[Rfam]
RNA: Mason-Pfizer monkey virus packaging signal
RNA sequence: UGUCGCCCAACGUGGGGCCUGGACAUGGGGGAAAUCGAGAGGGAAGAGGCAUUUGAUAAGUUCUAUCAAACAAAACAGAAGUCAGUUCAACAAAGAUUGCCACAUGAACCUGCCGCGUCGCUCUUAAAAGGUACAGUGACACCUAAUCAUGGGACAAGAAUUAAGUAAGCAUAUAAUUUUUGUUAACCAAUUAAAAGAAGCCUUAAAGACAUGAGGAGUAAGGGUUAAAAGUAAUGAGCUUUUUAAGUUUUUUGAACUUAUCAAGGACACCUGCCUGU
Numbered sequence: 001u002g003u004c005g006c007c008c009a010a011c012g013u014g015g016g017g018c019c020u021g022g023a024c025a026u027g028g029g030g031g032a033a034a035u036c037g038a039g040a041g042g043g044a045a046g047a048g049g050c051a052u053u054u055g056a057u058a059a060g061u062u063c064u065a066u067c068a069a070a071c072a073a074a075a076c077a078g079a080a081g082u083c084a085g086u087u088c089a090a091c092a093a094a095g096a097u098u099g100c101c102a103c104a105u106g107a108a109c110c111u112g113c114c115g116c117g118u119c120g121c122u123c124u125u126a127a128a129a130g131g132u133a134c135a136g137u138g139a140c141a142c143c144u145a146a147u148c149a150u151g152g153g154a155c156a157a158g159a160a161u162u163a164a165g166u167a168a169g170c171a172u173a174u175a176a177u178u179u180u181u182g183u184u185a186a187c188c189a190a191u192u193a194a195a196a197g198a199a200g201c202c203u204u205a206a207a208g209a210c211a212u213g214a215g216g217a218g219u220a221a222g223g224g225u226u227a228a229a230a231g232u233a234a235u236g237a238g239c240u241u242u243u244u245a246a247g248u249u250u251u252u253u254g255a256a257c258u259u260a261u262c263a264a265g266g267a268c269a270c271c272u273g274c275c276u277g278u
Base pairs, nucleotide, nucleotide: 006031007030008029012026013025014024036048082131083130086127087126096122098120101117103115137157142153143152144151145150162205163204164203165201166200212254213253214252215251216250217249218248219247222240223239225237226236227235263278265276266275268273